[Rfam]
RNA sequence: UUGAAGCUCCAUCUACAAAUGGAUAAGAUUUCGAUCUUCGUGUACACGAGUUUUUGAAAAUAACGGAGCAAUGCCGAUUCUCUUCCAAGAAAUUGGUAUUGCUUCGUUAUU
Number, nucleotide and partner (000 for none) at each position: 001u000002u000003g000004a000005a000006g000007c000008u023009c022010c021011a020012u019013c000014u000015a000016c000017a000018a000019a012020u011021g010022g009023a008024u000025a000026a000027g000028a000029u000030u000031u000032c000033g000034a000035u000036c000037u000038u000039c000040g000041u000042g000043u000044a000045c000046a000047c000048g000049a000050g000051u000052u000053u000054u000055u000056g000057a000058a000059a000060a000061u000062a108063a107064c106065g105066g104067a103068g102069c101070a100071a099072u098073g097074c096075c000076g000077a094078u000079u000080c000081u090082c089083u088084u000085c000086c000087a000088a083089g082090a081091a000092a000093u000094u077095g000096g074097u073098a072099u071100u070101g069102c068103u067104u066105c065106g064107u063108u062109a000110u000111u000

Source information: A member of the RNA family "Plastid-psbA-1 3UTR RNA" from Koelreuteria paniculata, 111 nucleotides long. It is one of the family's seed sequences. Taxonomically the source falls in Koelreuteria (Eukaryota, Tracheophyta, Sapindales, Sapindaceae). About the family: Plastid psbA-1 is a non-coding RNA (ncRNA) present in plastids. It was identified in inverted repeat sequences in the 3 prime untranslate region (3UTR) of photosystem II quinone-binding protein (psbA). The family's consensus secondary structure was predicted with LocARNA.